[Rfam]
RNA sequence: GUCUGACAAAGGCAACACAGCCUGAAAAGGUGUGACGCAAAGCCACCGGCCUGGAUUUUUUUUUGGGAGUAUGGCAGCGGGGUUUCCGGA
Numbered sequence: 001g002u003c004u005g006a007c008a009a010a011g012g013c014a015a016c017a018c019a020g021c022c023u024g025a026a027a028a029g030g031u032g033u034g035a036c037g038c039a040a041a042g043c044c045a046c047c048g049g050c051c052u053g054g055a056u057u058u059u060u061u062u063u064u065g066g067g068a069g070u071a072u073g074g075c076a077g078c079g080g081g082g083u084u085u086c087c088g089g090a
Base pairs, nucleotide, nucleotide: 012038013037017033018032019031021030022029023028041084042083043082044081046080047079048078049075050074051073056069057068058067059066
Description
Shown here is a 90-nucleotide RNA sequence from Desulfonatronospira thiodismutans, a member of the family "c-di-GMP-I riboswitch aptamer". The family's consensus secondary structure is taken from published work.